[Rfam]
RNA sequence: CUGCUAUGCCACCUGGUGAAUAGCUCGGCUCGAGAGCCGACGAAGGACGUGCCAAGCUGCGAUAAGCCUGUGGGAGCUGCAUGGAAGCGAAGAACACAGGAUGUCCGAAUGGGAAUCCCCACCGCAAUUGCUUCGCGCAAUGGGGAACGCCGGGAAUUGAAACAUCUUAGUACCGGUCGGAAAAGAAAUCAAACGAGAUAUCGUCAGUAACCGCGAGUGAACGCGAUACAGCCCAAACUGAAGGCCUCACGGCCAAUGUGGUGUAUUGGGCCGGCACUCAUCGUCGGAACCCUUCUGUGAAGUCUCCUGGAACGGAGCGCGACACAGGGUGAAAGCCCCGUAACGGAAGCUAGUAUGACGUGAGCCGGUUCCGGAGUAGCGGGGGUUGGAAAUCCCUCGUGAAUACGGCAGGCAUCUACUGCCAAGGCUAAAUACUCCUCGAGACCGAUAGCGAACAAGUAGCGCGAGCGAACGCUGAAAAGUACCCUCAGAAGGGAGGCGAAACAGGGCUUGAAAUCAGGUGGCGAUGGAGC
Numbered sequence: 001c002u003g004c005u006a007u008g009c010c011a012c013c014u015g016g017u018g019a020a021u022a023g024c025u026c027g028g029c030u031c032g033a034g035a036g037c038c039g040a041c042g043a044a045g046g047a048c049g050u051g052c053c054a055a056g057c058u059g060c061g062a063u064a065a066g067c068c069u070g071u072g073g074g075a076g077c078u079g080c081a082u083g084g085a086a087g088c089g090a091a092g093a094a095c096a097c098a099g100g101a102u103g104u105c106c107g108a109a110u111g112g113g114a115a116u117c118c119c120c121a122c123c124g125c126a127a128u129u130g131c132u133u134c135g136c137g138c139a140a141u142g143g144g145g146a147a148c149g150c151c152g153g154g155a156a157u158u159g160a161a162a163c164a165u166c167u168u169a170g171u172a173c174c175g176g177u178c179g180g181a182a183a184a185g186a187a188a189u190c191a192a193a194c195g196a197g198a199u200a201u202c203g204u205c206a207g208u209a210a211c212c213g214c215g216a217g218u219g220a221a222c223g224c225g226a227u228a229c230a231g232c233c234c235a236a237a238c239u240g241a242a243g244g245c246c247u248c249a250c251g252g253c254c255a256a257u258g259u260g261g262u263g264u265a266u267u268g269g270g271c272c273g274g275c276a277c278u279c280a281u282c283g284u285c286g287g288a289a290c291c292c293u294u295c296u297g298u299g300a301a302g303u304c305u306c307c308u309g310g311a312a313c314g315g316a317g318c319g320c321g322a323c324a325c326a327g328g329g330u331g332a333a334a335g336c337c338c339c340g341u342a343a344c345g346g347a348a349g350c351u352a353g354u355a356u357g358a359c360g361u362g363a364g365c366c367g368g369u370u371c372c373g374g375a376g377u378a379g380c381g382g383g384g385g386u387u388g389g390a391a392a393u394c395c396c397u398c399g400u401g402a403a404u405a406c407g408g409c410a411g412g413c414a415u416c417u418a419c420u421g422c423c424a425a426g427g428c429u430a431a432a433u434a435c436u437c438c439u440c441g442a443g444a445c446c447g448a449u450a451g452c453g454a455a456c457a458a459g460u461a462g463c464g465c466g467a468g469c470g471a472a473c474g475c476u477g478a479a480a481a482g483u484a485c486c487c488u489c490a491g492a493a494g495g496g497a498g499g500c501g502a503a504a505c506a507g508g509g510c511u512u513g514a515a516a517u518c519a520g521g522u523g524g525c526g527a528u529g530g531a532g533c
Stems, first nucleotide, its partner, number of pairs: 007526010022511001023475002027446002029443006035436002045106003048061003067100006076088003111120003127141005148179001149177005159166002189196002200227005210218002230429004238261003243254004272367004282360004296345003302318001304317004321325001327339003379400007407423005462469002

The record is a 533-nucleotide part of an RNA from Halosimplex carlsbadense, which matches "Archaeal large subunit ribosomal RNA" in Rfam. Rfam links the family to the GO terms ribosome and structural constituent of ribosome. On this family, see Cannone et al., BMC Bioinformatics 2002: "The comparative RNA web (CRW) site: an online database of comparative sequence and structure information for ribosomal, intron, and other RNAs". The base pairs follow the family's consensus structure, which is taken from published work.